[Rfam]
RNA: Mammalian CPEB3 ribozyme
Organism: Alligator sinensis
RNA sequence: GGUUGUAAGUUUGAGGCUAUAGCAGAAGUGCUUAAGACAUAGCCCUACCAGAUUCCAAUGAAUCUGCAAAUUGUGCU
Numbered sequence: 001g002g003u004u005g006u007a008a009g010u011u012u013g014a015g016g017c018u019a020u021a022g023c024a025g026a027a028g029u030g031c032u033u034a035a036g037a038c039a040u041a042g043c044c045c046u047a048c049c050a051g052a053u054u055c056c057a058a059u060g061a062a063u064c065u066g067c068a069a070a071u072u073g074u075g076c077u
Stems, first nucleotide, its partner, number of pairs: 013045001015044004021077004026072002028040003049066007